[Rfam]
RNA sequence: AGUUCUGAUGCACCGAAUUUUGAGGUGGAGAACGAGGAGACAAUCGAGGCACUCAGUGCCCGGACGAAAGCGCUGUUGGAGGGAAUCCAACAGCGCUUUUUA
Numbered sequence: 001a002g003u004u005c006u007g008a009u010g011c012a013c014c015g016a017a018u019u020u021u022g023a024g025g026u027g028g029a030g031a032a033c034g035a036g037g038a039g040a041c042a043a044u045c046g047a048g049g050c051a052c053u054c055a056g057u058g059c060c061c062g063g064a065c066g067a068a069a070g071c072g073c074u075g076u077u078g079g080a081g082g083g084a085a086u087c088c089a090a091c092a093g094c095g096c097u098u099u100u101u102a
Base pairs, nucleotide, nucleotide: 002033003032004031005030009029011027012026013025014024015020037065044063045062046061048060049059050058051057052056067099068098069097070096071095072094073093074092075091076090077089078088079087080086

The record is a 102-nucleotide RNA sequence from Trinickia soli, which matches "Burkholderia sRNA 1" in Rfam. A search with the family's covariance model found it, with a score of 95 bits. Gene Ontology term of the family: bacterial biofilm matrix. NCBI's taxonomy places the organism under Bacteria, Pseudomonadati, Pseudomonadota, Betaproteobacteria, Trinickia. Identified by RNA-seq, RACE and Northern blot. Strongly expressed in biofilm.